The family of this 168-nucleotide RNA sequence from Pelagomonas calceolata is "ACEA small nucleolar RNA U3". Lineage of the source: Eukaryota > Sar > Pelagomonadales > Pelagomonadaceae > Pelagomonas. Rfam's curators write: Small nucleolar RNAs (snoRNAs) are involved in the processing and modification of rRNA in the nucleolus. There are two main classes of snoRNAs: the box C/D class, and the box H/ACA class. Gene Ontology terms of the family: nucleolus and RNA processing. Its Rfam clan is "U3 clan". By type it is a C/D-box small nucleolar RNA. The base pairs follow the family's consensus structure, which is taken from published work.
RNA sequence: UCGACAAUACUCUUUAGAAUCUUUUCUAUAGUUGUCUGACAUCUCUUCUCAACUUUGAGAAGCAAAUACUUCAUCUCUGAUGUAGAACUACACCGCCGCGCCACGAUUUCGACGUUGAUCCCUCGGAUCCUGGAUGAAACUGGAGGCGUCGGCGGAUUCUGAAGGGAC
Numbered sequence: 001u002c003g004a005c006a007a008u009a010c011u012c013u014u015u016a017g018a019a020u021c022u023u024u025u026c027u028a029u030a031g032u033u034g035u036c037u038g039a040c041a042u043c044u045c046u047u048c049u050c051a052a053c054u055u056u057g058a059g060a061a062g063c064a065a066a067u068a069c070u071u072c073a074u075c076u077c078u079g080a081u082g083u084a085g086a087a088c089u090a091c092a093c094c095g096c097c098g099c100g101c102c103a104c105g106a107u108u109u110c111g112a113c114g115u116u117g118a119u120c121c122c123u124c125g126g127a128u129c130c131u132g133g134a135u136g137a138a139a140c141u142g143g144a145g146g147c148g149u150c151g152g153c154g155g156a157u158u159c160u161g162a163a164g165g166g167a168c
Stems, first nucleotide, its partner, number of pairs: 001039003006035001009032003016027004045062007074167005093155005098149005123143004128138001